Shown here is a 90-nucleotide sequence from Canis lupus, a member of the family "mir-8799 microRNA precursor family". The match comes from Rfam's covariance-model search (88 bits). Its Rfam clan is "mir-8791 microRNA precursor clan". Taxonomically the source falls in Canis lupus (Eukaryota, Teleostomi, Sarcopterygii, Tetrapoda). The family has 7 seed sequences and 20,638 matches in Rfam 15.1. Pairs were carried over by alignment from the consensus structure, which was predicted with RNAalifold.

RNA sequence: AGGGGGAGGCCGGAUCCUGGGCUGUGUCCCGGCACCCUGUGCUACGGGGCCUGCGCUGUUGGAUUCGCGCUCCUAGUGGCGCAGCCCCCU
Numbered sequence: 001a002g003g004g005g006g007a008g009g010c011c012g013g014a015u016c017c018u019g020g021g022c023u024g025u026g027u028c029c030c031g032g033c034a035c036c037c038u039g040u041g042c043u044a045c046g047g048g049g050c051c052u053g054c055g056c057u058g059u060u061g062g063a064u065u066c067g068c069g070c071u072c073c074u075a076g077u078g079g080c081g082c083a084g085c086c087c088c089c090u
Base pairs, nucleotide, nucleotide: 001090002089003088004087005086006085009082010081011079013077016076019073020072021071023069024068025067026066027063028062029061030058031057032056033055035053039051041050042049043048